The family of this 107-nucleotide sequence from Aureimonas jatrophae is "SAM-I/IV (S-adenosyl methionine) riboswitch aptamer". The literature on the family includes a 2008 paper in RNA by Weinberg et al., "The aptamer core of SAM-IV riboswitches mimics the ligand-binding site of SAM-I riboswitches". Clan: SAM clan. Pairs were carried over by alignment from the consensus structure, which is taken from published work.
RNA sequence: GCCCCGCAUCCAGAGUCGGGCCGACGCCCGACGCCAACCUGCCCGUCCGGGCAAGGUGGCGUCCCGAAACGGGAGAUGUGGCCGACCCGGCAACCAAGCGGACCCGC
Numbered sequence: 001g002c003c004c005c006g007c008a009u010c011c012a013g014a015g016u017c018g019g020g021c022c023g024a025c026g027c028c029c030g031a032c033g034c035c036a037a038c039c040u041g042c043c044c045g046u047c048c049g050g051g052c053a054a055g056g057u058g059g060c061g062u063c064c065c066g067a068a069a070c071g072g073g074a075g076a077u078g079u080g081g082c083c084g085a086c087c088c089g090g091c092a093a094c095c096a097a098g099c100g101g102a103c104c105c106g107c
Stems, first nucleotide, its partner, number of pairs: 006079005015032001017030005033060003038056003041052003045103005081091004